[Rfam]
A member of the RNA family "Small nucleolar RNA SNORA31" from Neogale vison, 129 nucleotides long. About the family: ACA31 (SNORA31) belongs to the H/ACA class of snoRNAs which are thought to guide the sites of modification of uridines to pseudouridines. ACA31 is predicted to guide the pseudouridylation of U3713 in 28S rRNA and U218 in 18S rRNA. This family includes the mouse homologue snoMBI-161. By type it is an H/ACA-box small nucleolar RNA. The organism belongs to Neogale, within Eukaryota. The family has 5 seed sequences and 2,094 matches in Rfam 15.1.
RNA sequence: AUGCAUCCAUUUGACAGACCUGGAGCAGUUCUGUCUGCUGCUAAGGUUUCCACUAGAGAUGCAAGAAAAAAAUUCUCGCACUUUCUGUCUCUCAUUGUGGCAGUCAAGAUUGAACGGGGGAGUACAGGC
Numbered sequence: 001a002u003g004c005a006u007c008c009a010u011u012u013g014a015c016a017g018a019c020c021u022g023g024a025g026c027a028g029u030u031c032u033g034u035c036u037g038c039u040g041c042u043a044a045g046g047u048u049u050c051c052a053c054u055a056g057a058g059a060u061g062c063a064a065g066a067a068a069a070a071a072a073u074u075c076u077c078g079c080a081c082u083u084u085c086u087g088u089c090u091c092u093c094a095u096u097g098u099g100g101c102a103g104u105c106a107a108g109a110u111u112g113a114a115c116g117g118g119g120g121a122g123u124a125c126a127g128g129c
Stems, first nucleotide, its partner, number of pairs: 002063006008056001012052002016049005024039005073121005081112001084109003089103002092100002
Its family is annotated with RNA processing and nucleolus in the Gene Ontology.